RNA sequence: AAUGACGGUAGAGGUGCGGACUUCAAGAGUAGCGCGUCAGAGGAAAAUGGAUUCCUUUGAAGACGCGUGAAAGGGGAGCGCCGCCGAAGCAAAGAAAGAGCCAUUUCUUCUCUUUGCUGGUUUUGCGUUUAAGAGACGCAGGAUUGUCAAGAAGAUGUUUUUCUUGGAGCGCUAUCUCAUUG
Numbered sequence: 001a002a003u004g005a006c007g008g009u010a011g012a013g014g015u016g017c018g019g020a021c022u023u024c025a026a027g028a029g030u031a032g033c034g035c036g037u038c039a040g041a042g043g044a045a046a047a048u049g050g051a052u053u054c055c056u057u058u059g060a061a062g063a064c065g066c067g068u069g070a071a072a073g074g075g076g077a078g079c080g081c082c083g084c085c086g087a088a089g090c091a092a093a094g095a096a097a098g099a100g101c102c103a104u105u106u107c108u109u110c111u112c113u114u115u116g117c118u119g120g121u122u123u124u125g126c127g128u129u130u131a132a133g134a135g136a137c138g139c140a141g142g143a144u145u146g147u148c149a150a151g152a153a154g155a156u157g158u159u160u161u162u163c164u165u166g167g168a169g170c171g172c173u174a175u176c177u178c179a180u181u182g
Stems, first nucleotide, its partner, number of pairs: 007176005016084004021078004032068007088118008097109002119145011147167007

Shown here is a 182-nucleotide RNA from Metabacillus indicus, a member of the family "Lysine riboswitch aptamer". It scores 127 bits against the family's covariance model.